[Rfam]
RNA sequence: AUUGUAUAAGGGCAAACCUGACUGAAAAGCAGGGACGCAAAGUCACAGGUCUAAGGUUUCCUUACUAUGACAGCUGGACUGCCGAC
Numbered sequence: 001a002u003u004g005u006a007u008a009a010g011g012g013c014a015a016a017c018c019u020g021a022c023u024g025a026a027a028a029g030c031a032g033g034g035a036c037g038c039a040a041a042g043u044c045a046c047a048g049g050u051c052u053a054a055g056g057u058u059u060c061c062u063u064a065c066u067a068u069g070a071c072a073g074c075u076g077g078a079c080u081g082c083c084g085a086c
Stems, first nucleotide, its partner, number of pairs: 012038002017033004022029002041080004046076003049071003056065002
The record is an 86-nucleotide sequence from Paenalicyclobacillus ferrooxydans, which matches "c-di-GMP-I riboswitch aptamer" in Rfam. Pairs were carried over by alignment from the consensus structure, which is taken from published work.